[Rfam]
RNA sequence: ACCUUGGCUCUAGACUGCUUACUGCUUAAAACUCAGUGAAACUACAGUAACAGUCUACAGUCAUGGCU
Numbered sequence: 001a002c003c004u005u006g007g008c009u010c011u012a013g014a015c016u017g018c019u020u021a022c023u024g025c026u027u028a029a030a031a032c033u034c035a036g037u038g039a040a041a042c043u044a045c046a047g048u049a050a051c052a053g054u055c056u057a058c059a060g061u062c063a064u065g066g067c068u
Stems, first nucleotide, its partner, number of pairs: 002066002005063004013055005019050005
mir-132 microRNA precursor family: a 68-nucleotide sequence from Salmo salar.
It is one of the family's seed sequences.
The literature on the family includes a 2005 paper in Genes Dev by Chen et al., "The developmental miRNA profiles of zebrafish as determined by small RNA cloning".
The family's consensus secondary structure was predicted with RNAalifold.